[Rfam]
RNA sequence: GCUGGUGUAUGUGAUGACUUCUUUUCUUUCCCCAUCUGAGCGACAGUGUUGAGUCCUCACUUCUCUUCAAGCCAAGUCUUGCCUGAUGCACCAGC
Numbered sequence: 001g002c003u004g005g006u007g008u009a010u011g012u013g014a015u016g017a018c019u020u021c022u023u024u025u026c027u028u029u030c031c032c033c034a035u036c037u038g039a040g041c042g043a044c045a046g047u048g049u050u051g052a053g054u055c056c057u058c059a060c061u062u063c064u065c066u067u068c069a070a071g072c073c074a075a076g077u078c079u080u081g082c083c084u085g086a087u088g089c090a091c092c093a094g095c
Base pairs, nucleotide, nucleotide: 001095002094003093004092005091006090007089008088009087